Glycine riboswitch aptamer: a 102-nucleotide sequence from Hydrogenophaga sp. RAC07.
RNA sequence: UCGGCCGGGUCAGGAGAGCGCCGCCCCCGAGGUGGCCGCCGAAGGCGCAGGAGGUCACCCAUGUGGCCCUGAACGCUCAGGCAAAAGGACUGGCAAACACGG
Dot-bracket structure: ........(((((......((((.........)))).(((((..(((..((.................))...))))).))).......)))))........